[Rfam]
RNA sequence: CUUUCCGAGGAGCGUUGCAGCGUCCCCAGCACAGCGGGGCGUGAGGCUCGGAAGCCGGUUCCUUCGCAACGACGCUCACCCACG
Number, nucleotide and partner (000 for none) at each position: 001c000002u054003u053004u052005c051006c050007g049008a048009g000010g000011a000012g000013c000014g000015u000016u000017g000018c000019a000020g000021c041022g040023u039024c038025c037026c036027c000028a000029g000030c000031a000032c000033a000034g000035c000036g026037g025038g024039g023040c022041g021042u000043g000044a000045g000046g000047c000048u008049c007050g006051g005052a004053a003054g002055c000056c000057g000058g000059u000060u000061c000062c000063u000064u000065c000066g000067c000068a000069a000070c000071g000072a000073c000074g000075c000076u000077c000078a000079c000080c000081c000082a000083c000084g000

Overview:
The record is an 84-nucleotide sequence from Acidovorax sp. Leaf160, which matches "SAH (S-adenosyl-L-homocysteine) riboswitch aptamer" in Rfam. The base pairs follow the family's consensus structure, which is taken from published work.